RNA sequence: ACAUGGAAGAGGAAGAAAGAGAGUUCCUAAGAGCGGUAGGAGUGGGAACAUGAAGGAACGCGUGUGCUCUGUUUUCUCCACUUUUAUUGGAGGAGGGGGAUAUUUGCAUCGAUGUGUUCCUGAUGCCUCCCAUUCCUAUGGUUCUUAGGUGCUCCUUCCUAUUAAAGGAU
Numbered sequence: 001a002c003a004u005g006g007a008a009g010a011g012g013a014a015g016a017a018a019g020a021g022a023g024u025u026c027c028u029a030a031g032a033g034c035g036g037u038a039g040g041a042g043u044g045g046g047a048a049c050a051u052g053a054a055g056g057a058a059c060g061c062g063u064g065u066g067c068u069c070u071g072u073u074u075u076c077u078c079c080a081c082u083u084u085u086a087u088u089g090g091a092g093g094a095g096g097g098g099g100a101u102a103u104u105u106g107c108a109u110c111g112a113u114g115u116g117u118u119c120c121u122g123a124u125g126c127c128u129c130c131c132a133u134u135c136c137u138a139u140g141g142u143u144c145u146u147a148g149g150u151g152c153u154c155c156u157u158c159c160u161a162u163u164a165a166a167g168g169a170u
Base pairs, nucleotide, nucleotide: 010163011162013160015158016157017156021154022153023152026149027148028147029146030145031144032143033142034141037138038137039136040135041134042133043132044131045130046129047128049125050124051123053121055120056119057118058117059116060115061114062113063112

Overview: Rfam assigns this 170-nucleotide RNA sequence from Panicum miliaceum to the family "MIR2118 microRNA precursor family". On this family, see Xue et al., Nucleic Acids Res 2009: "Characterization and expression profiles of miRNAs in rice seeds". The organism belongs to Panicum sect. Panicum, within Eukaryota.